[Rfam]
RNA: eL15-Euryarchaeota ribosomal protein leader
RNA sequence: CCUGCCUCGGCAGGUCGGAAUGUGGCCACCCUCGUGGUGAAGGGACCGCCCCGGAACGGCUGAACCAUCGA
Dot-bracket structure: (((((....)))))..((.....((((..............................))))...)).....
Numbered sequence: 001c002c003u004g005c006c007u008c009g010g011c012a013g014g015u016c017g018g019a020a021u022g023u024g025g026c027c028a029c030c031c032u033c034g035u036g037g038u039g040a041a042g043g044g045a046c047c048g049c050c051c052c053g054g055a056a057c058g059g060c061u062g063a064a065c066c067a068u069c070g071a
Stems, first nucleotide, its partner, number of pairs: 001014005017066002024061004